[Rfam]
RNA sequence: GAGUUCCUGCCAGUGGCGAGCCUAAGGGGGUCAGCCCCGAAGGCGUAGGGAAACCGAGCGCCCGCAGCCGGGGAAACCCGGUGAGGGGCGGGGUCCGCAAGGGCCUGGAGUCACUGGCAGGAGGCUAGAAACCGGGCGAUCUAGUCCGGGGCAGGCCGAAGGCGGGGGAAACCCCGCUGGAGGGCCGAAUAGGGGUUCUGACGUGCAAUUCGUUCCCUUGACCCCGGACUAGGGGCAAAAGACCAACCUAGCCCGGUGAUAGCUAGCU
Numbered sequence: 001g002a003g004u005u006c007c008u009g010c011c012a013g014u015g016g017c018g019a020g021c022c023u024a025a026g027g028g029g030g031u032c033a034g035c036c037c038c039g040a041a042g043g044c045g046u047a048g049g050g051a052a053a054c055c056g057a058g059c060g061c062c063c064g065c066a067g068c069c070g071g072g073g074a075a076a077c078c079c080g081g082u083g084a085g086g087g088g089c090g091g092g093g094u095c096c097g098c099a100a101g102g103g104c105c106u107g108g109a110g111u112c113a114c115u116g117g118c119a120g121g122a123g124g125c126u127a128g129a130a131a132c133c134g135g136g137c138g139a140u141c142u143a144g145u146c147c148g149g150g151g152c153a154g155g156c157c158g159a160a161g162g163c164g165g166g167g168g169a170a171a172c173c174c175c176g177c178u179g180g181a182g183g184g185c186c187g188a189a190u191a192g193g194g195g196u197u198c199u200g201a202c203g204u205g206c207a208a209u210u211c212g213u214u215c216c217c218u219u220g221a222c223c224c225c226g227g228a229c230u231a232g233g234g235g236c237a238a239a240a241g242a243c244c245a246a247c248c249u250a251g252c253c254c255g256g257u258g259a260u261a262g263c264u265a266g267c268u
Stems, first nucleotide, its partner, number of pairs: 005122013020044004026038004048055002060089004067082006092105004125266002128263001132256006141232011152220001154186004161178007192217004198212001200211002234244002

The record is a 268-nucleotide part of an RNA from Sulfolobales archaeon SCGC AB-777_K20, which matches "Archaeal large subunit ribosomal RNA" in Rfam. Its Rfam clan is "LSU clan". The organism belongs to Sulfolobales, within Archaea.